This 108-nucleotide sequence belongs to the Rfam family "RT-5 RNA".
The family's RNA type in Rfam is small RNA.
The family's consensus secondary structure is taken from published work.
[Rfam]
RNA sequence: UAGCGCCUGCGGCGGGCCUGGCACGAACAUUUAUUAGAAUAACUUCGCAGGCAGUUGUUCGUGUACGGUCUGGUACACUCCGGAACAUUCCGGACUUUAAUGAUUUCU
Numbered sequence: 001u002a003g004c005g006c007c008u009g010c011g012g013c014g015g016g017c018c019u020g021g022c023a024c025g026a027a028c029a030u031u032u033a034u035u036a037g038a039a040u041a042a043c044u045u046c047g048c049a050g051g052c053a054g055u056u057g058u059u060c061g062u063g064u065a066c067g068g069u070c071u072g073g074u075a076c077a078c079u080c081c082g083g084a085a086c087a088u089u090c091c092g093g094a095c096u097u098u099a100a101u102g103a104u105u106u107c108u
Stems, first nucleotide, its partner, number of pairs: 005052007013072003017068002021064008041056004079094006
Dot-bracket structure: ....[[[[[[[.(((.((..((((((((............((((.]]]]]]]))))))))))))..)).)))......((((((....))))))..............